[Rfam]
RNA sequence: GGACUAAAUAAUCUCUGCAGGCAACUGUGAAGUAUUGUCACAAUCUCACAAUGGUCUACAGAGAUUCUGUAGUCU
Numbered sequence: 001g002g003a004c005u006a007a008a009u010a011a012u013c014u015c016u017g018c019a020g021g022c023a024a025c026u027g028u029g030a031a032g033u034a035u036u037g038u039c040a041c042a043a044u045c046u047c048a049c050a051a052u053g054g055u056c057u058a059c060a061g062a063g064a065u066u067c068u069g070u071a072g073u074c075u
Stems, first nucleotide, its partner, number of pairs: 003073004010066008020057002024052001026050005
mir-216 microRNA precursor family: a 75-nucleotide RNA sequence from Chiloscyllium punctatum.
A search with the family's covariance model found it, with a score of 56 bits.
Its Rfam clan is "mir-216 clan".
The source organism's lineage runs through Eukaryota, Deuterostomia, Selachii, Orectolobiformes and Chiloscyllium.